RNA: uup RNA
RNA sequence: GAAAAGUCCGCUCCGUACAGCUGCAUCCGAUGAAGGGUUGUACGGAGC
Numbered sequence: 001g002a003a004a005a006g007u008c009c010g011c012u013c014c015g016u017a018c019a020g021c022u023g024c025a026u027c028c029g030a031u032g033a034a035g036g037g038u039u040g041u042a043c044g045g046a047g048c
Base pairs, nucleotide, nucleotide: 011047012046013045014044015043017041018040019039